[Rfam]
RNA sequence: CGGUUUCCUGCUUCAACAGUGCUUGAAUGGAACUC
Numbered sequence: 001c002g003g004u005u006u007c008c009u010g011c012u013u014c015a016a017c018a019g020u021g022c023u024u025g026a027a028u029g030g031a032a033c034u035c
Base pairs, nucleotide, nucleotide: 002035003034005032006031007030008029010028012027013026014025015024016023017021
RNA: Iron response element I
Organism: Dipodomys ordii